[Rfam]
RNA sequence: ACCUGAAAAAGGCAAACCAUUCGAAAGGAUGGGACGCAAAGCCACUGGCCUAAAUCUCAAAUGUUGAGAUAUGGUAGCGGGUUGCCAGG
Numbered sequence: 001a002c003c004u005g006a007a008a009a010a011g012g013c014a015a016a017c018c019a020u021u022c023g024a025a026a027g028g029a030u031g032g033g034a035c036g037c038a039a040a041g042c043c044a045c046u047g048g049c050c051u052a053a054a055u056c057u058c059a060a061a062u063g064u065u066g067a068g069a070u071a072u073g074g075u076a077g078c079g080g081g082u083u084g085c086c087a088g089g
Base pairs, nucleotide, nucleotide: 012037013036017032018031019030020029021028022027040083041082042081043080046079047078048075049074050073055069056068057067058066059065060064

This 89-nucleotide sequence from Candidatus Brocadia fulgida belongs to the Rfam family "c-di-GMP-I riboswitch aptamer". The match comes from Rfam's covariance-model search (79 bits).